[Rfam]
RNA: ZMP/ZTP riboswitch aptamer (pfl RNA motif)
Organism: Deinococcus radiopugnans
RNA sequence: ACAGCGGGCGGCAACUGGCGCUGAACGUGGGCCAACCACGGGGAAGCCGCUUUCCGACUUUCGAAUUGAUCGCGCGCCUGGGUCUGACGU
Numbered sequence: 001a002c003a004g005c006g007g008g009c010g011g012c013a014a015c016u017g018g019c020g021c022u023g024a025a026c027g028u029g030g031g032c033c034a035a036c037c038a039c040g041g042g043g044a045a046g047c048c049g050c051u052u053u054c055c056g057a058c059u060u061u062c063g064a065a066u067u068g069a070u071c072g073c074g075c076g077c078c079u080g081g082g083u084c085u086g087a088c089g090u
Stems, first nucleotide, its partner, number of pairs: 004054001006052007015043002017078005027039004068084004